Record summary:
The record is a 107-nucleotide RNA from Peribacillus cavernae, which matches "SAM riboswitch aptamer (S box leader)" in Rfam. Rfam describes the family as follows. The SAM riboswitch is found upstream of a number of genes which code for proteins involved in methionine or cysteine biosynthesis in Gram-positive bacteria. Lineage of the source: Bacteria > Bacillota > Caryophanales > Bacillaceae > Peribacillus.
RNA sequence: AACUUAUCAAGAGUGACUGAGGGACCAGGCCCUAUGAAGUCCGGCAACCUCCUUUUUUGGGAAAGGUGCUACCUCCUGCAGAAUGAUUUCAUUCUGAAAGAUAAGGC
Numbered sequence: 001a002a003c004u005u006a007u008c009a010a011g012a013g014u015g016a017c018u019g020a021g022g023g024a025c026c027a028g029g030c031c032c033u034a035u036g037a038a039g040u041c042c043g044g045c046a047a048c049c050u051c052c053u054u055u056u057u058u059g060g061g062a063a064a065g066g067u068g069c070u071a072c073c074u075c076c077u078g079c080a081g082a083a084u085g086a087u088u089u090c091a092u093u094c095u096g097a098a099a100g101a102u103a104a105g106g107c
Stems, first nucleotide, its partner, number of pairs: 003105006013042001015041003021032003026078004043070004048066002050062004074099001079096006